[Rfam]
RNA sequence: CUCUGUUUCGCAGGCCGCCUUGCGGUAUGAUUCAGGGCAAAGGAG
Dot-bracket structure: (((((..(((.................)))..)))))........
Source information:
The record is a 45-nucleotide RNA, which matches "L31-Firmicutes ribosomal protein leader" in Rfam. Rfam's curators put it in the seed alignment.